[Rfam]
RNA sequence: UCAUAUAAACAAGUUAUACCGUAGACAGCAGGAGCGCCUCAGCGCUUAAAACUUUCCUGCCGAGGUGUGUUUAAACAGCGACGGCCCCGUUAAGGCUGGCGUUGGAAAACCUCCAUGUCUGCAUGGAGGUUUUUUAUAUGGCAAG
Dot-bracket structure: ...........................(((((((((......))).........))))))................................................(((((((((....)))))))))...............

This 145-nucleotide sequence from Lentibacillus sp. JNUCC-1 belongs to the Rfam family "Ribosomal protein L10 leader". This family is a putative r-protein leader autoregulatory structure found in B. subtilis and other low-GC Gram-positive bacteria. It is located in the 5' untranslated regions of mRNAs encoding ribosomal proteins L10 and L12 (rplJ-rplL). A Rho-independent transcription terminator structure that is probably involved in regulation is included at the 3' end. Rfam classes the family as a cis-regulatory leader. Lineage of the source: Bacteria > Bacillati > Bacillota > Bacilli > Lentibacillus. The literature on the family includes a 1994 paper in Prog Nucleic Acid Res Mol Biol by Zengel and Lindahl, "Diverse mechanisms for regulating ribosomal protein synthesis in Escherichia coli". It scores 77 bits against the family's covariance model.